RNA sequence: GGUCCGAGCCACGUUGAUGGUAGUCUAAAUGACAAUGACCAUCAAUGCUAUGAUUGGACCUAUAUAAAAUUCAUAUUUCGCAUCUUGAUAGGAAUCUGUACAUUGAUUUACUAUUCAUUUACAGAGCCGUUUUGUGCGAUUACAUUC
Dot-bracket structure: .(((((((...((((((.(((.(((.....)))....))).))))))...)..))))))..................(((((........((...(((.(.((.............)).).)))..))......)))))........
Notes:
A member of the RNA family "Small nucleolar RNA snoR2/U65" from Papaver nudicaule, 147 nucleotides long. For this family Rfam cites "Localization and processing from a polycistronic precursor of novel snoRNAs in maize" (Shaw et al., J Cell Sci, 1998). Rfam 15.1 lists 908 matches to the family in 230 species. The family is grouped with related families in Rfam's "SNORA65 clan".